[Rfam]
RNA sequence: GUUCCCAGUGAUGCUUUAACCAUGCUAAUACUGAUACUUUCUGACGAGCAAUAUAUUUUUACUGAGGGAACC
Numbered sequence: 001g002u003u004c005c006c007a008g009u010g011a012u013g014c015u016u017u018a019a020c021c022a023u024g025c026u027a028a029u030a031c032u033g034a035u036a037c038u039u040u041c042u043g044a045c046g047a048g049c050a051a052u053a054u055a056u057u058u059u060u061a062c063u064g065a066g067g068g069a070a071c072c
Stems, first nucleotide, its partner, number of pairs: 001071005